Human immunodeficiency virus type 1 dimerisation initiation site: a 39-nucleotide RNA sequence from Lentivirus simimdef. The literature on the family includes a 1996 paper in J Virol by McBride and Panganiban, "The human immunodeficiency virus type 1 encapsidation site is a multipartite RNA element composed of functional hairpin structures". The family's RNA type in Rfam is cis-regulatory element. Taxonomically the source falls in Lentivirus simimdef (Viruses, Artverviricota, Ortervirales, Lentivirus). From the family's description: This cis element is composed of four hairpins called SL1 to SL4 (SL is for Stem Loop). It is one of the family's seed sequences.
RNA sequence: GGACUCGGCUUGUGACAGCGCAAUCACAAGAGGCGAGGC
Numbered sequence: 001g002g003a004c005u006c007g008g009c010u011u012g013u014g015a016c017a018g019c020g021c022a023a024u025c026a027c028a029a030g031a032g033g034c035g036a037g038g039c
Stems, first nucleotide, its partner, number of pairs: 004037004009030007